[Rfam]
RNA sequence: CUCCCCGAAAUAUAUUUAGGUAUAGCCUUGUUGAAUCCGCAAUGGUGGUAAAGCACAGUUGAAGCUUUGGGGGCGCAAGCCUACCAGGCCUUUACUAACUCUGAAUGCCGUUGCGUUAGAAGACAGGAGACAGACUGUGGGGGAUAAGCUUCAUAGUCGAGAGGGAAACAGCCCAGACCAUCAGCUAAGGUCCUUAAGUAUUCGUUAAGUGGUUAAAGAAGUGAAAAUGCUUAGACAGCCAGGAGGUUGGCUUAGAAGCAGCCAUCCUUUAAAGAAAGCGUAAUAGCUCACUGGUAUAGUGUUUUUGCGCUGAAAAACGAACGGGGCUAAACGAAUCACCGAAGCUAUGGCUUGUACAUUUAUUUGUACAGGGGUAGGGGAGCGUUCUCUGAUAGAUACAAGUUUGACCGUAAGGACAAAUGUGGAUCAGAGAAGUGAAUAU
Numbered sequence: 001c002u003c004c005c006c007g008a009a010a011u012a013u014a015u016u017u018a019g020g021u022a023u024a025g026c027c028u029u030g031u032u033g034a035a036u037c038c039g040c041a042a043u044g045g046u047g048g049u050a051a052a053g054c055a056c057a058g059u060u061g062a063a064g065c066u067u068u069g070g071g072g073g074c075g076c077a078a079g080c081c082u083a084c085c086a087g088g089c090c091u092u093u094a095c096u097a098a099c100u101c102u103g104a105a106u107g108c109c110g111u112u113g114c115g116u117u118a119g120a121a122g123a124c125a126g127g128a129g130a131c132a133g134a135c136u137g138u139g140g141g142g143g144a145u146a147a148g149c150u151u152c153a154u155a156g157u158c159g160a161g162a163g164g165g166a167a168a169c170a171g172c173c174c175a176g177a178c179c180a181u182c183a184g185c186u187a188a189g190g191u192c193c194u195u196a197a198g199u200a201u202u203c204g205u206u207a208a209g210u211g212g213u214u215a216a217a218g219a220a221g222u223g224a225a226a227a228u229g230c231u232u233a234g235a236c237a238g239c240c241a242g243g244a245g246g247u248u249g250g251c252u253u254a255g256a257a258g259c260a261g262c263c264a265u266c267c268u269u270u271a272a273a274g275a276a277a278g279c280g281u282a283a284u285a286g287c288u289c290a291c292u293g294g295u296a297u298a299g300u301g302u303u304u305u306u307g308c309g310c311u312g313a314a315a316a317a318c319g320a321a322c323g324g325g326g327c328u329a330a331a332c333g334a335a336u337c338a339c340c341g342a343a344g345c346u347a348u349g350g351c352u353u354g355u356a357c358a359u360u361u362a363u364u365u366g367u368a369c370a371g372g373g374g375u376a377g378g379g380g381a382g383c384g385u386u387c388u389c390u391g392a393u394a395g396a397u398a399c400a401a402g403u404u405u406g407a408c409c410g411u412a413a414g415g416a417c418a419a420a421u422g423u424g425g426a427u428c429a430g431a432g433a434a435g436u437g438a439a440u441a442u
Base pairs, nucleotide, nucleotide: 001382002381003380004379005378006377011024012023013022014021015020026129027127028126029125030124031123032122036120038115039114040113041112042111043110044109045108046107051102052100053099057096058095059094061092062091064089069085070084071082072081073080074079133158134157135156136155137154138153139152140151141150142149163174164173165172178350179349180348181347183346184345185344189340190339191338198337200336201335202334203333204332205331217311218310221308222307223306224305225304226303227302228301229300230299238295239294240293241292242291244268245267246266249263250262251261269273274289278287279286351372352371353370354369355368356367357366358365383437385434386433387432388431389430390429391428392427393426402421403420404419405418406417408415409414
Rfam assigns this 442-nucleotide part of an RNA from Vermiphilus pyriformis to the family "Bacterial large subunit ribosomal RNA". The family has 102 seed sequences and 51,934 matches in Rfam 15.1. The match comes from Rfam's covariance-model search (2717 bits). NCBI's taxonomy places the organism under Bacteria, Bacteria candidate phyla, Candidatus Babelota, Vermiphilus, Vermiphilus pyriformis.